[Rfam]
RNA sequence: ACCCUGGGGAGUGCCGCGAACGCCCCGUGAGGCGCCAAGCCCAAGGUUCGCAUGUUCACCCUUGCGCGCGAGGAGACAUGCCUAUG
Numbered sequence: 001a002c003c004c005u006g007g008g009g010a011g012u013g014c015c016g017c018g019a020a021c022g023c024c025c026c027g028u029g030a031g032g033c034g035c036c037a038a039g040c041c042c043a044a045g046g047u048u049c050g051c052a053u054g055u056u057c058a059c060c061c062u063u064g065c066g067c068g069c070g071a072g073g074a075g076a077c078a079u080g081c082c083u084a085u086g
Base pairs, nucleotide, nucleotide: 005027006026007025008024009023050081051080052079053078054077055076
RNA: chrB-a RNA
Organism: Roseobacter sp. SK209-2-6